[Rfam]
RNA sequence: CUCUUAUUAAGAGAUGGCAGAGGGACUGGCCCGAUGAUGCCCGGCAACCUACCGUUCAAACGGAAAGGUGCUAACUCCUGCAGGAGAAAUUUUCCUGAGAGAUAAGAG
Numbered sequence: 001c002u003c004u005u006a007u008u009a010a011g012a013g014a015u016g017g018c019a020g021a022g023g024g025a026c027u028g029g030c031c032c033g034a035u036g037a038u039g040c041c042c043g044g045c046a047a048c049c050u051a052c053c054g055u056u057c058a059a060a061c062g063g064a065a066a067g068g069u070g071c072u073a074a075c076u077c078c079u080g081c082a083g084g085a086g087a088a089a090u091u092u093u094c095c096u097g098a099g100a101g102a103u104a105a106g107a108g
Stems, first nucleotide, its partner, number of pairs: 001108008013042001016041003022032003026080001028078002043072004048068002050064001052062001076100001081097006
This 108-nucleotide RNA from Pseudoneobacillus rhizosphaerae belongs to the Rfam family "SAM riboswitch aptamer (S box leader)".
The base pairs follow the family's consensus structure, which is taken from published work.
Its family is annotated with regulation of gene expression in the Gene Ontology.
Taxonomically the source falls in Pseudoneobacillus (Bacteria, Bacillota, Bacilli, Caryophanales).
The family is grouped with related families in Rfam's "SAM clan".
A search with the family's covariance model found it, with a score of 92 bits.